Annotation:
A member of the RNA family "Proteo-phage-1 RNA", 76 nucleotides long. It is annotated as a small RNA.
RNA sequence: CCCGAGGCUGGCGGGCCUAAGGGAUAGCCAGCCGCCCCCAGCCGGCAUGUGGGGUUUAUGAAAACAGCCGGCAGCC
Numbered sequence: 001c002c003c004g005a006g007g008c009u010g011g012c013g014g015g016c017c018u019a020a021g022g023g024a025u026a027g028c029c030a031g032c033c034g035c036c037c038c039c040a041g042c043c044g045g046c047a048u049g050u051g052g053g054g055u056u057u058a059u060g061a062a063a064a065c066a067g068c069c070g071g072c073a074g075c076c
Stems, first nucleotide, its partner, number of pairs: 001015004007032005016023002034055004041072005